[Rfam]
RNA: mir-574 microRNA precursor family
RNA sequence: UGGCCUGCAGAGAGAGAGGCAGGGUCUGAUCCACAGCCUCUGUUGCAGCUGUUGAUCAGCCAUUGCCUCUCUCUUUCUGUCCC
Numbered sequence: 001u002g003g004c005c006u007g008c009a010g011a012g013a014g015a016g017a018g019g020c021a022g023g024g025u026c027u028g029a030u031c032c033a034c035a036g037c038c039u040c041u042g043u044u045g046c047a048g049c050u051g052u053u054g055a056u057c058a059g060c061c062a063u064u065g066c067c068u069c070u071c072u073c074u075u076u077c078u079g080u081c082c083c
Base pairs, nucleotide, nucleotide: 010075011074012073013072014071015070016069017068018067019066020065021064022063024061026059027058028057029056030055031054034051035050036049037048